[Rfam]
RNA: SAM riboswitch aptamer (S box leader)
Organism: Metabacillus sediminilitoris
RNA sequence: CUCUUAUCCCGAGCUGGUGGAGGGACAGGCCCUAUGAAACCCAGCAACCUGUAUCAAAGGAAAGUGGCGACCUACGUAUUAUUUAAUAGAUAUAGCUUCUAUUAAAAAUAAGCGUAAGCAAAACAACAUUUCCGAUGCAAAGGUGCUAACCUGAUGCAAGGCGAAAAUCCUUGAUCGAUAAGAG
Numbered sequence: 001c002u003c004u005u006a007u008c009c010c011g012a013g014c015u016g017g018u019g020g021a022g023g024g025a026c027a028g029g030c031c032c033u034a035u036g037a038a039a040c041c042c043a044g045c046a047a048c049c050u051g052u053a054u055c056a057a058a059g060g061a062a063a064g065u066g067g068c069g070a071c072c073u074a075c076g077u078a079u080u081a082u083u084u085a086a087u088a089g090a091u092a093u094a095g096c097u098u099c100u101a102u103u104a105a106a107a108a109u110a111a112g113c114g115u116a117a118g119c120a121a122a123a124c125a126a127c128a129u130u131u132c133c134g135a136u137g138c139a140a141a142g143g144u145g146c147u148a149a150c151c152u153g154a155u156g157c158a159a160g161g162c163g164a165a166a167a168u169c170c171u172u173g174a175u176c177g178a179u180a181a182g183a184g
Base pairs, nucleotide, nucleotide: 001184002183003182004181005180006179007178008177013042016041017040018039022032023031024030026156027155029152043147044146045145046144048143049142050139051138052137053136054135055134157173158172159171160170161169